RNA sequence: GUGAGAAUCACAGUGCAGUUCUCCUCUGGCAUGGAUGCCAAUGUUAGCAGGCGUUGGACUACGUACAUUGCUAUUGUCAUCCCUGCCAAAGGAGAAUUGCCCUGCCAUUCAGCA
Numbered sequence: 001g002u003g004a005g006a007a008u009c010a011c012a013g014u015g016c017a018g019u020u021c022u023c024c025u026c027u028g029g030c031a032u033g034g035a036u037g038c039c040a041a042u043g044u045u046a047g048c049a050g051g052c053g054u055u056g057g058a059c060u061a062c063g064u065a066c067a068u069u070g071c072u073a074u075u076g077u078c079a080u081c082c083c084u085g086c087c088a089a090a091g092g093a094g095a096a097u098u099g100c101c102c103u104g105c106c107a108u109u110c111a112g113c114a
Stems, first nucleotide, its partner, number of pairs: 005110004011104003015100005021094004027088005033082005
mir-399 microRNA precursor family: a 114-nucleotide RNA sequence from Oryza meridionalis. From the family's description: mir-399 was identified in both Arabidopsis thaliana and Oryza sativa computationally and was later experimentally verified. mir-399 is thought to target mRNAs coding for a phosphatase transporter. The mature sequence is excised from the 3' arm of the hairpin. The match comes from Rfam's covariance-model search (74 bits).